Bacterial RNase P class A: a 396-nucleotide sequence from Rhodobacter xanthinilyticus.
A search with the family's covariance model found it, with a score of 292 bits.
Rfam describes the family as follows. Ribonuclease P (RNase P) is a ubiquitous endoribonuclease, found in archaea, bacteria and eukarya as well as chloroplasts and mitochondria.
The family's consensus secondary structure is taken from published work.
RNA sequence: GCGGAUGGCUGGAUGACCGCGGCGGCUCAUAGCUCUGCACCUGCGGAUAGCUGGGCCGUCGAGGAAAGUCCGGACUCCAUGAAGCAACGGUGCCGGGUAACGCCCGGCGGGGGCAACCCCAGGGAAAGCGCCACAGAGAACAGACCGCCCUGCCUUGUGCAGGGUCAGGGUGAAACGGUGGGGUAAGAGCCCACCGCGGACCUGGCAACAGGGACGGCACGGCAAGCCCCACCGGGAGCAACGCCGAAUAGGGACUGCGCGCCGCGUGCGGCAGGGGAGCUUCGCCCCGAGCAGUCCGGGUUGGCGGCUAGAUCCUGCGGGCAACCGCAGGGCCAGAGGAAUGGUCAUCCAGGGGGCAACCCCGGACAAAAUCCGGCUUACAGGCCAUCCGUGCAA
Numbered sequence: 001g002c003g004g005a006u007g008g009c010u011g012g013a014u015g016a017c018c019g020c021g022g023c024g025g026c027u028c029a030u031a032g033c034u035c036u037g038c039a040c041c042u043g044c045g046g047a048u049a050g051c052u053g054g055g056c057c058g059u060c061g062a063g064g065a066a067a068g069u070c071c072g073g074a075c076u077c078c079a080u081g082a083a084g085c086a087a088c089g090g091u092g093c094c095g096g097g098u099a100a101c102g103c104c105c106g107g108c109g110g111g112g113g114c115a116a117c118c119c120c121a122g123g124g125a126a127a128g129c130g131c132c133a134c135a136g137a138g139a140a141c142a143g144a145c146c147g148c149c150c151u152g153c154c155u156u157g158u159g160c161a162g163g164g165u166c167a168g169g170g171u172g173a174a175a176c177g178g179u180g181g182g183g184u185a186a187g188a189g190c191c192c193a194c195c196g197c198g199g200a201c202c203u204g205g206c207a208a209c210a211g212g213g214a215c216g217g218c219a220c221g222g223c224a225a226g227c228c229c230c231a232c233c234g235g236g237a238g239c240a241a242c243g244c245c246g247a248a249u250a251g252g253g254a255c256u257g258c259g260c261g262c263c264g265c266g267u268g269c270g271g272c273a274g275g276g277g278a279g280c281u282u283c284g285c286c287c288c289g290a291g292c293a294g295u296c297c298g299g300g301u302u303g304g305c306g307g308c309u310a311g312a313u314c315c316u317g318c319g320g321g322c323a324a325c326c327g328c329a330g331g332g333c334c335a336g337a338g339g340a341a342u343g344g345u346c347a348u349c350c351a352g353g354g355g356g357c358a359a360c361c362c363c364g365g366a367c368a369a370a371a372u373c374c375g376g377c378u379u380a381c382a383g384g385c386c387a388u389c390c391g392u393g394c395a396a
Stems, first nucleotide, its partner, number of pairs: 001392010011381001012349007020061009066379003070376005075238004084282001088234005093107005108122001109120004123229002128227002130223003145169002147165007177195006196218001197216002201212004242306004252297006274288004313332008